[Rfam]
RNA sequence: GGGGUGCGGUUCGCAAGGGUGGGGGCAGACCCUCUCUCGCUCGAGCGACGCCACGCCGCCGGCACGGCUUCUCCUUCGUGCGGAGGCAUGUGGGAACACAUGCGAAAGUCGGCCGAAUAUCCGAGGCUCGCGCGGGGGAUAGACUACCCGAAAGGGGAAAACAACCCUGAGCCCGCAGGCGGCGAACAGAAAAGGCGGCCGUGGUCCGGGA
Numbered sequence: 001g002g003g004g005u006g007c008g009g010u011u012c013g014c015a016a017g018g019g020u021g022g023g024g025g026c027a028g029a030c031c032c033u034c035u036c037u038c039g040c041u042c043g044a045g046c047g048a049c050g051c052c053a054c055g056c057c058g059c060c061g062g063c064a065c066g067g068c069u070u071c072u073c074c075u076u077c078g079u080g081c082g083g084a085g086g087c088a089u090g091u092g093g094g095a096a097c098a099c100a101u102g103c104g105a106a107a108g109u110c111g112g113c114c115g116a117a118u119a120u121c122c123g124a125g126g127c128u129c130g131c132g133c134g135g136g137g138g139a140u141a142g143a144c145u146a147c148c149c150g151a152a153a154g155g156g157g158a159a160a161a162c163a164a165c166c167c168u169g170a171g172c173c174c175g176c177a178g179g180c181g182g183c184g185a186a187c188a189g190a191a192a193a194g195g196c197g198g199c200c201g202u203g204g205u206c207c208g209g210g211a
Stems, first nucleotide, its partner, number of pairs: 005203006012047003017042002060115004065111006071085004089102004125173004
The record is a 211-nucleotide RNA, which matches "Methylosinus-1 RNA" in Rfam. The family's consensus secondary structure is taken from published work. The family's RNA type in Rfam is small RNA. The sequence is in the family's curated seed alignment.